[Rfam]
RNA sequence: AAAAACAGAACUAUAAAAAUUAAAUAGUCAUCUUAUUAUUUGCUUUCCGAGUAGAGCCUUGAUCCAAGGCUCUUUUUUUUCGCC
Dot-bracket structure: (((((.((.................(((.(..(....).).)))..........((((((.....)))))))).))))).....

Aggregatibacter sRNA 20: an 84-nucleotide RNA sequence from Actinobacillus succinogenes. The match comes from Rfam's covariance-model search (44 bits). On this family, see Oogai et al., DNA Res 2017: "Small RNA repertoires and their intraspecies variation in Aggregatibacter actinomycetemcomitans". From the family's description: Validated by RT-PCR and Northern blot. The source organism's lineage runs through Bacteria, Pseudomonadati, Pseudomonadota, Pasteurellaceae and Actinobacillus succinogenes.